[Rfam]
Nucleotides: 185
Base pairs, nucleotide, nucleotide: 002169003168004167011024026165027164028163029162030161031160036094037093095150096149097148103122104121105120106119107118108117125144126143127142128141
Number, partner (000 for none) and nucleotide at each position: 001000g002169g003168c004167u005000g006000a007000c008000g009000a010000g011024c012000a013000c014000c015000a016000c017000a018000c019000g020000a021000c022000a023000g024011g025000a026165g027164c028163g029162g030161g031160g032000g033000a034000a035000c036094c037093a038000c039000a040000g041000g042000u043000g044000a045000a046000c047000c048000g049000c050000c051000g052000a053000a054000c055000a056000c057000g058000g059000c060000a061000c062000c063000g064000a065000u066000c067000g068000a069000g070000a071000c072000g073000g074000u075000c076000g077000g078000c079000c080000g081000c082000c083000g084000c085000g086000a087000a088000c089000g090000g091000c092000u093037u094036g095150g096149g097148g098000u099000g100000a101000a102000g103122c104121c105120a106119c107118g108117u109000c110000c111000u112000u113000c114000g115000g116000g117108a118107c119106g120105u121104g122103g123000c124000c125144g126143g127142g128141c129000u130000a131000u132000c133000g134000a135000u136000c137000u138000c139000c140000g141128g142127c143126c144125c145000g146000a147000a148097u149096c150095c151000g152000a153000c154000a155000g156000c157000u158000c159000a160031c161030c162029u163028c164027g165026u166000a167004g168003g169002c170000g171000u172000g173000g174000g175000a176000g177000a178000g179000g180000a181000u182000c183000c184000a185000g